[Rfam]
Nucleotides: 274
Stems, first nucleotide, its partner, number of pairs: 006030002012025003037046001084126003087122002093117001094115001097110005134151001138149004158201003161197003208250008218236005259274003263270001
Number, partner (000 for none) and nucleotide at each position: 001000u002000g003000g004000c005000a006030c007029c008000c009000a010000a011000c012025g013024u014023g015000g016000g017000g018000c019000u020000g021000g022000a023014u024013a025012c026000g027000g028000a029007g030006g031000a032000c033000c034000c035000a036000g037046u038000g039000a040000g041000g042000g043000a044000a045000g046037a047000a048000g049000a050000c051000g052000u053000c054000c055000c056000c057000a058000a059000a060000g061000g062000a063000a064000c065000g066000c067000g068000u069000u070000c071000c072000a073000c074000a075000a076000c077000a078000a079000u080000u081000u082000u083000c084126a085125c086124u087122c088121u089000g090000g091000a092000c093117a094115c095000g096000c097110c098109g099108c100107g101106g102000g103000a104000a105000c106101c107100u108099g109098c110097g111000u112000a113000a114000g115094g116000u117093u118000c119000c120000c121088a122087g123000a124086a125085g126084u127000a128000a129000g130000u131000a132000c133000a134151g135000a136000a137000g138149u139148c140147u141146g142000a143000u144000u145000a146141u147140g148139g149138g150000a151134c152000a153000a154000g155000a156000a157000a158201u159200a160199a161197g162196c163195a164000g165000g166000c167000a168000u169000g170000a171000a172000c173000u174000u175000u176000a177000u178000g179000u180000u181000a182000g183000g184000c185000a186000a187000u188000u189000g190000c191000a192000g193000g194000a195163u196162g197161c198000c199160u200159u201158a202000a203000g204000g205000a206000u207000g208250u209249g210248a211247g212246g213245a214244g215243u216000a217000a218236a219235g220234g221233u222232u223000a224000a225000a226000a227000u228000a229000g230000a231000g232222g233221a234220u235219c236218u237000a238000u239000u240000g241000a242000g243215a244214u245213u246212c247211u248210u249209u250208a251000a252000a253000u254000u255000u256000a257000u258000u259274a260273a261272g262000a263270a264000a265000a266000c267000c268000u269000g270263u271000c272261c273260u274259u